Shown here is a 342-nucleotide sequence from Synechococcus sp., a member of the family "Bacterial RNase P class A". Rfam classes the family as a ribozyme. The source organism's lineage runs through Bacteria, Cyanobacteriota, Synechococcales, Synechococcaceae and Synechococcus. The sequence is in the family's curated seed alignment.
[Rfam]
RNA sequence: GGGGAGGAAAGUCCGGGCUCCCCAAUGGCCAGGCUUGCUGGGUAACGCCCAGUGCGGGUGACCGUGAGGAGAGUGCCACAGAAACACACCGCCGAUGGCUCCGCUUCCGCUGCGGUGGAGACGAGCACAGGCAAGGGUGCAAAGGUGCGGUAAGAGCGCACCAGCAGCAUCGAGAGGUGCUGGCUCGGUAAACCCCGGCCGGGAGCAAGGCCCAGGGACCAACGGUUGGCCAUGACACCGGUCCCGCCCCAAGUGCGCCGCUCGAGGCCGCCGGAGACGGCGGUCCCAGACAGAUGAUCACCCCGGGCAGGGUCCGCCCCACCCGGAACAGAACCCGGCUUA
Numbered sequence: 001g002g003g004g005a006g007g008a009a010a011g012u013c014c015g016g017g018c019u020c021c022c023c024a025a026u027g028g029c030c031a032g033g034c035u036u037g038c039u040g041g042g043u044a045a046c047g048c049c050c051a052g053u054g055c056g057g058g059u060g061a062c063c064g065u066g067a068g069g070a071g072a073g074u075g076c077c078a079c080a081g082a083a084a085c086a087c088a089c090c091g092c093c094g095a096u097g098g099c100u101c102c103g104c105u106u107c108c109g110c111u112g113c114g115g116u117g118g119a120g121a122c123g124a125g126c127a128c129a130g131g132c133a134a135g136g137g138u139g140c141a142a143a144g145g146u147g148c149g150g151u152a153a154g155a156g157c158g159c160a161c162c163a164g165c166a167g168c169a170u171c172g173a174g175a176g177g178u179g180c181u182g183g184c185u186c187g188g189u190a191a192a193c194c195c196c197g198g199c200c201g202g203g204a205g206c207a208a209g210g211c212c213c214a215g216g217g218a219c220c221a222a223c224g225g226u227u228g229g230c231c232a233u234g235a236c237a238c239c240g241g242u243c244c245c246g247c248c249c250c251a252a253g254u255g256c257g258c259c260g261c262u263c264g265a266g267g268c269c270g271c272c273g274g275a276g277a278c279g280g281c282g283g284u285c286c287c288a289g290a291c292a293g294a295u296g297a298u299c300a301c302c303c304c305g306g307g308c309a310g311g312g313u314c315c316g317c318c319c320c321a322c323c324c325g326g327a328a329c330a331g332a333a334c335c336c337g338g339c340u341u342a
Base pairs, nucleotide, nucleotide: 001302002301004299009341010340011339013338014337015336016335017334018205019204020203021202028236030234032200033199034198036197037196038052039051040050041049042048053067054065055064056063057062068195069194073193074192075189076188077187089136090135091132092131093130096129097128098126099125100124101123144162145161146160147159148158149157164184165182166181167180168179169178170177171176209259210258211257215250216249217248219246228243229242230241231240266285267284268283269282270281271280272279273278